[Rfam]
RNA sequence: GAGCGGUGAGGACACCUGUGCUCCAAGUGAUGGUGGGGUCUAUCACUGCCGUCUGAUCUUUCAUUGGAUGAAAGUGAGCGCACCUGAGCUC
Numbered sequence: 001g002a003g004c005g006g007u008g009a010g011g012a013c014a015c016c017u018g019u020g021c022u023c024c025a026a027g028u029g030a031u032g033g034u035g036g037g038g039u040c041u042a043u044c045a046c047u048g049c050c051g052u053c054u055g056a057u058c059u060u061u062c063a064u065u066g067g068a069u070g071a072a073a074g075u076g077a078g079c080g081c082a083c084c085u086g087a088g089c090u091c
Base pairs, nucleotide, nucleotide: 001091002090003089004088

A member of the RNA family "small nucleolar RNA snoR114" from Populus trichocarpa, 91 nucleotides long.
The base pairs follow the family's consensus structure, which was predicted with RNAalifold.
Rfam classes the family as a C/D-box small nucleolar RNA.
A reference for the family is Chen and Wu (2009), "Mining small RNA sequencing data: a new approach to identify small nucleolar RNAs in Arabidopsis", Nucleic Acids Res.
Gene Ontology terms of the family: RNA processing and nucleolus.
NCBI's taxonomy places the organism under Eukaryota, Streptophyta, Tracheophyta, Saliceae, Populus.